[Rfam]
RNA sequence: GGCCGCCUGAGGGGAAGGCGACCUCAGUACGAGAGGAACGGGUCGCCGCGGCCUCUGGUGUAGCGGCCGUCCGGCUGGGCGUAUGCCGCGUAGCUACGCCGUGGGGGGUAACCGCUGAAAGCAUCUAAGCGGGAACCCCUCCCCGAAAAGAGGCGGCCGUUCCCGGACAGGGUUUCCUGUCCGGGAGGAGGGCUCCCGUAGAAGACGGGGUUGAUGGGGCGGGGGUGUAAGCCCCAAGGGUCUUAUGGCCCGAGGGGUUCAGCCCACCGCUCCCAAUCGCCCGACAA
Numbered sequence: 001g002g003c004c005g006c007c008u009g010a011g012g013g014g015a016a017g018g019c020g021a022c023c024u025c026a027g028u029a030c031g032a033g034a035g036g037a038a039c040g041g042g043u044c045g046c047c048g049c050g051g052c053c054u055c056u057g058g059u060g061u062a063g064c065g066g067c068c069g070u071c072c073g074g075c076u077g078g079g080c081g082u083a084u085g086c087c088g089c090g091u092a093g094c095u096a097c098g099c100c101g102u103g104g105g106g107g108g109u110a111a112c113c114g115c116u117g118a119a120a121g122c123a124u125c126u127a128a129g130c131g132g133g134a135a136c137c138c139c140u141c142c143c144c145g146a147a148a149a150g151a152g153g154c155g156g157c158c159g160u161u162c163c164c165g166g167a168c169a170g171g172g173u174u175u176c177c178u179g180u181c182c183g184g185g186a187g188g189a190g191g192g193c194u195c196c197c198g199u200a201g202a203a204g205a206c207g208g209g210g211u212u213g214a215u216g217g218g219g220c221g222g223g224g225g226u227g228u229a230a231g232c233c234c235c236a237a238g239g240g241u242c243u244u245a246u247g248g249c250c251c252g253a254g255g256g257g258u259u260c261a262g263c264c265c266a267c268c269g270c271u272c273c274c275a276a277u278c279g280c281c282c283g284a285c286a287a
Stems, first nucleotide, its partner, number of pairs: 001158008011144004017047008048102005056096003063089005068081005105139003112132005190282004194210005215275003218271005223265003231258005238251004
Archaeal large subunit ribosomal RNA: a 287-nucleotide part of an RNA from Ignisphaera aggregans. Rfam's curators put it in the seed alignment. For this family Rfam cites "Crystal structure of the ribosome at 5.5 A resolution" (Yusupov et al., Science, 2001).